[Rfam]
RNA sequence: GGCUUACCCGUAAGCCUAAAAGAGCGGGACGGCAGGUGACGGCGACCACCUAAAACGCCUA
Numbered sequence: 001g002g003c004u005u006a007c008c009c010g011u012a013a014g015c016c017u018a019a020a021a022g023a024g025c026g027g028g029a030c031g032g033c034a035g036g037u038g039a040c041g042g043c044g045a046c047c048a049c050c051u052a053a054a055a056c057g058c059c060u061a
Base pairs, nucleotide, nucleotide: 001016002015003014004013008027009026010025011024035050036049037048038047
The family of this 61-nucleotide RNA from Syntrophobotulus glycolicus is "GP20-b RNA". The organism belongs to Syntrophobotulus glycolicus, within Bacteria. The base pairs follow the family's consensus structure, which is taken from published work.